[Rfam]
RNA sequence: UUUACUUAGGUCUGUGGUUGAAAGUCGAUGCCAGUCGCAGGCAAAACGAUCCACGUAAGGUAGCAUAAAAUUUUUAAGCUACUGAUCAUGGUGCGGCUUAGAGGUGAGUCCUACCUGGAUUAUUACAUAUAUAGUAAUUAUACCAGAGAGAGGUAGUAGUGGUCUGAUAAUACUGCAAACCCUCCAGUGGGCGAGUGUGGGGGCAAAGAUCAGGUCAGCUAAGUAAA
Numbered sequence: 001u002u003u004a005c006u007u008a009g010g011u012c013u014g015u016g017g018u019u020g021a022a023a024g025u026c027g028a029u030g031c032c033a034g035u036c037g038c039a040g041g042c043a044a045a046a047c048g049a050u051c052c053a054c055g056u057a058a059g060g061u062a063g064c065a066u067a068a069a070a071u072u073u074u075u076a077a078g079c080u081a082c083u084g085a086u087c088a089u090g091g092u093g094c095g096g097c098u099u100a101g102a103g104g105u106g107a108g109u110c111c112u113a114c115c116u117g118g119a120u121u122a123u124u125a126c127a128u129a130u131a132u133a134g135u136a137a138u139u140a141u142a143c144c145a146g147a148g149a150g151a152g153g154u155a156g157u158a159g160u161g162g163u164c165u166g167a168u169a170a171u172a173c174u175g176c177a178a179a180c181c182c183u184c185c186a187g188u189g190g191g192c193g194a195g196u197g198u199g200g201g202g203g204c205a206a207a208g209a210u211c212a213g214g215u216c217a218g219c220u221a222a223g224u225a226a227a
Stems, first nucleotide, its partner, number of pairs: 001227009012218003015212005028198003031041001033098007050091002055086001058083002062080003089205001110191005115146004150184004159176002165172002
A member of the RNA family "raiA RNA" from Orenia marismortui, 227 nucleotides long. It is annotated as a riboswitch.